Shown here is an 84-nucleotide sequence from Cebus imitator, a member of the family "mir-548 microRNA precursor family".
The match comes from Rfam's covariance-model search (98 bits).
The base pairs follow the family's consensus structure, which was predicted with WAR.

Nucleotides: 084
Stems, first nucleotide, its partner, number of pairs: 001084034036049005
Number, partner (000 for none) and nucleotide at each position: 001084u002083a003082u004081u005080a006079g007078g008077u009076u010075g011074g012073u013072g014071c015070u016069a017068a018067a019066g020065u021064a022063a023062u024061u025060g026059u027058g028057g029056g030055u031054u032053u033052u034051g035000c036049c037048a038047u039046u040045g041000a042000a043000a044000a045040u046039a047038a048037u049036g050000u051034c052033a053032a054031a055030a056029c057028c058027c059026a060025c061024a062023a063022u064021u065020a066019c067018u068017u069016u070015a071014g072013c073012a074011c075010c076009a077008a078007c079006c080005u081004a082003a083002u084001g